[Rfam]
RNA sequence: UUGCAUGAUGCGUUUGUCAAUGUAUCCUAUUUCCCAUGGAAAACUAUUUUACCCAUUUUAUGCUAUAUUAAUGCUAAGGAGUUAUCAGGGCUGCCAGCCAAGAAGCACAGGCUGAGUGGUAGUAUAUUACUCCUACAAAA
Numbered sequence: 001u002u003g004c005a006u007g008a009u010g011c012g013u014u015u016g017u018c019a020a021u022g023u024a025u026c027c028u029a030u031u032u033c034c035c036a037u038g039g040a041a042a043a044c045u046a047u048u049u050u051a052c053c054c055a056u057u058u059u060a061u062g063c064u065a066u067a068u069u070a071a072u073g074c075u076a077a078g079g080a081g082u083u084a085u086c087a088g089g090g091c092u093g094c095c096a097g098c099c100a101a102g103a104a105g106c107a108c109a110g111g112c113u114g115a116g117u118g119g120u121a122g123u124a125u126a127u128u129a130c131u132c133c134u135a136c137a138a139a140a
Stems, first nucleotide, its partner, number of pairs: 003063006020045001023042001025040003078133004090120002094116001095114005
RNA: Small nucleolar RNA U109